A member of the RNA family "Small nucleolar RNA SNORD10" from Anolis carolinensis, 144 nucleotides long. The source organism's lineage runs through Eukaryota, Dipnotetrapodomorpha, Lepidosauria, Unidentata and Anolis. Rfam classes the family as a C/D-box small nucleolar RNA. A search with the family's covariance model found it, with a score of 51 bits. The family has 22 seed sequences and 433 matches in Rfam 15.1. The base pairs follow the family's consensus structure, which was predicted with WAR.
RNA sequence: GUUCCGUGAUGAUUGGCCUCAUGCGUGUCAUCUGACCCCCUCGCUGCCCCACAGUCUCCCUUCCGGAAGGCGUUCUGCCUUGUUGGGGGGAGAUGUGGGGUUUGCUUGGGGGAAGUGAUCAUAACCUAACAAGGUCCUGAGGAC
Numbered sequence: 001g002u003u004c005c006g007u008g009a010u011g012a013u014u015g016g017c018c019u020c021a022u023g024c025g026u027g028u029c030a031u032c033u034g035a036c037c038c039c040c041u042c043g044c045u046g047c048c049c050c051a052c053a054g055u056c057u058c059c060c061u062u063c064c065g066g067a068a069g070g071c072g073u074u075c076u077g078c079c080u081u082g083u084u085g086g087g088g089g090g091a092g093a094u095g096u097g098g099g100g101u102u103u104g105c106u107u108g109g110g111g112g113a114a115g116u117g118a119u120c121a122u123a124a125c126c127u128a129a130c131a132a133g134g135u136c137c138u139g140a141g142g143a144c
Stems, first nucleotide, its partner, number of pairs: 001144004046101008